[Rfam]
The family of this 86-nucleotide RNA sequence from Brassica napus is "Small nucleolar RNA R21". It is annotated as a C/D-box small nucleolar RNA. Gene Ontology terms of the family: RNA processing and nucleolus. Rfam 15.1 lists 472 matches to the family in 146 species. A search with the family's covariance model found it, with a score of 77 bits.

Nucleotides: 086
Base pairs, nucleotide, nucleotide: 001086002085003084004083005082006081
Number, partner (000 for none) and nucleotide at each position: 001086g002085a003084u004083c005082c006081c007000a008000a009000u010000g011000a012000u013000g014000a015000u016000g017000a018000a019000u020000a021000a022000a023000u024000a025000a026000a027000a028000a029000a030000a031000u032000g033000u034000u035000a036000a037000a038000a039000g040000u041000a042000g043000u044000g045000a046000c047000u048000g049000a050000u051000u052000a053000u054000a055000u056000a057000c058000c059000u060000u061000g062000a063000c064000g065000a066000a067000u068000a069000a070000u071000c072000g073000a074000a075000u076000u077000c078000u079000g080000a081006g082005g083004g084003a085002u086001c